[Rfam]
RNA sequence: GUGUUUUUCAUGGUAUUAGAUUUAAGGUUAAGAAAGAUUACCCGUCGUGAUGACGAGUAAUUUUUUUUGU
Numbered sequence: 001g002u003g004u005u006u007u008u009c010a011u012g013g014u015a016u017u018a019g020a021u022u023u024a025a026g027g028u029u030a031a032g033a034a035a036g037a038u039u040a041c042c043c044g045u046c047g048u049g050a051u052g053a054c055g056a057g058u059a060a061u062u063u064u065u066u067u068u069g070u
Stems, first nucleotide, its partner, number of pairs: 040058002043055004
Source information
The family of this 70-nucleotide RNA sequence from Prevotella sp. CAG:873 is "Bacteroidetes FopS (family of paralogous sRNAs)". The match comes from Rfam's covariance-model search (74 bits). By type it is a small RNA. For this family Rfam cites "The global RNA-binding protein RbpB is a regulator of polysaccharide utilization in Bacteroides thetaiotaomicron" (Ruttiger et al., Nat Commun, 2025). Gene Ontology term of the family: sRNA-mediated gene silencing. From the family's description: The RNA-binding protein RbpB and BTncRNA_FopS sRNA are involved in the post-transcription regulation of polysaccharide utilisation loci (PUL). FopS sRNAs function as post-transcriptional repressors by binding to the vicinity of the start codon of the first mRNA of target PUL polycistrons, typically corresponding to the cognate SusC homolog, impeding translation of the respective glycan transporter.